Shown here is a 70-nucleotide RNA from Chaetorhynchus papuensis, a member of the family "Small nucleolar RNA SNORD73". The base pairs follow the family's consensus structure, which was predicted with PFOLD. NCBI's taxonomy places the organism under Eukaryota, Craniata, Sarcopterygii, Rhipiduridae, Chaetorhynchus. Rfam links the family to the GO terms RNA processing and nucleolus. On this family, see Rebane et al., Gene 1998: "A novel snoRNA (U73) is encoded within the introns of the human and mouse ribosomal protein S3a genes".
[Rfam]
RNA sequence: AAUGAAUGAUGACAAAAUGUUUCGGUCCCAGAUGAUGUGGAAUGAUUCCAUUUCCCUUUUUUCUGACAUU
Numbered sequence: 001a002a003u004g005a006a007u008g009a010u011g012a013c014a015a016a017a018u019g020u021u022u023c024g025g026u027c028c029c030a031g032a033u034g035a036u037g038u039g040g041a042a043u044g045a046u047u048c049c050a051u052u053u054c055c056c057u058u059u060u061u062u063c064u065g066a067c068a069u070u
Base pairs, nucleotide, nucleotide: 001070002069003068004067